[Rfam]
RNA sequence: GAUUUCCUGAGAUGUGCGUAGAGCUUAUGAUAUUCAACCUACAUGAUAUUAUCGGGAUUUGCAGUUAAUUCAUAAAUGUCAGGCUUCAUUUAAUCACAUGUUGUGACAGUAGAAGGCAGAAGUGAAUUGAGCUUAACCCACCUGCGAGGCGCAGGAUUUGAAUAUAUGGGCAAGCGGCAUGUUGGGAACUAU
Numbered sequence: 001g002a003u004u005u006c007c008u009g010a011g012a013u014g015u016g017c018g019u020a021g022a023g024c025u026u027a028u029g030a031u032a033u034u035c036a037a038c039c040u041a042c043a044u045g046a047u048a049u050u051a052u053c054g055g056g057a058u059u060u061g062c063a064g065u066u067a068a069u070u071c072a073u074a075a076a077u078g079u080c081a082g083g084c085u086u087c088a089u090u091u092a093a094u095c096a097c098a099u100g101u102u103g104u105g106a107c108a109g110u111a112g113a114a115g116g117c118a119g120a121a122g123u124g125a126a127u128u129g130a131g132c133u134u135a136a137c138c139c140a141c142c143u144g145c146g147a148g149g150c151g152c153a154g155g156a157u158u159u160g161a162a163u164a165u166a167u168g169g170g171c172a173a174g175c176g177g178c179a180u181g182u183u184g185g186g187a188a189c190u191a192u
Stems, first nucleotide, its partner, number of pairs: 002190001004188007012180004017176003032163004036158002038155002054139003058135001061132002065129001067128007079116002084112002087109001

This 192-nucleotide RNA from Clostridium sp. DL-VIII belongs to the Rfam family "6S / SsrS RNA". E. coli 6S RNA was the first non coding RNA to be sequenced, but its function was unknown until recently. The family's RNA type in Rfam is non-coding RNA gene. Taxonomically the source falls in Clostridium (Bacteria, Bacillota, Clostridia, Clostridiaceae).